[Rfam]
RNA sequence: GACUUUGCGUCUACAGCCCGAGCGACUCGCGACAGGCUGAUGGCUGGUGGCUCAUGCCACCGGCCU
Numbered sequence: 001g002a003c004u005u006u007g008c009g010u011c012u013a014c015a016g017c018c019c020g021a022g023c024g025a026c027u028c029g030c031g032a033c034a035g036g037c038u039g040a041u042g043g044c045u046g047g048u049g050g051c052u053c054a055u056g057c058c059a060c061c062g063g064c065c066u
Base pairs, nucleotide, nucleotide: 014039015038016037017036018035022030023029042065043064044063045062046061047060048059049058050057051056

Rfam assigns this 66-nucleotide RNA sequence from Stutzerimonas stutzeri to the family "Pseudomonas sRNA P26". The family's RNA type in Rfam is non-coding RNA gene. From the family's description: This small RNA (sRNA) was computationally identified in the genome of the opportunistic pathogen Pseudomonas aeruginosa and its expression verified by northern blot analysis. P26 is conserved across many Gammaproteobacteria species and appears to be consistently located between the DNA directed RNA polymerase (beta subunit) and 50S ribosomal protein L7/L12 genes. The base pairs follow the family's consensus structure, which was predicted with RNAalifold. For this family Rfam cites "Identification of 17 Pseudomonas aeruginosa sRNAs and prediction of sRNA-encoding genes in 10 diverse pathogens using the bioinformatic tool sRNAPredict2" (Livny et al., Nucleic Acids Res, 2006).